Shown here is a 59-nucleotide sequence from Paraburkholderia sp. DHOC27, a member of the family "Fluoride riboswitch aptamer (crcB RNA motif)". The organism belongs to Paraburkholderia, within Bacteria. The family's consensus secondary structure is taken from published work.
Nucleotides: 059
Stems, first nucleotide, its partner, number of pairs: 010025004016050006030040003
Number, partner (000 for none) and nucleotide at each position: 001000g002000c003000u004000g005000g006000u007000c008000a009000u010025g011024g012023g013022g014000a015000u016050g017049g018048a019047g020046u021045u022013c023012c024011c025010c026000u027000a028000a029000u030040g031039c032038c033000a034000u035000u036000c037000u038032g039031g040030c041000u042000g043000a044000u045021g046020a047019c048018u049017c050016c051000u052000a053000c054000c055000g056000g057000a058000u059000a
The match comes from Rfam's covariance-model search (48 bits).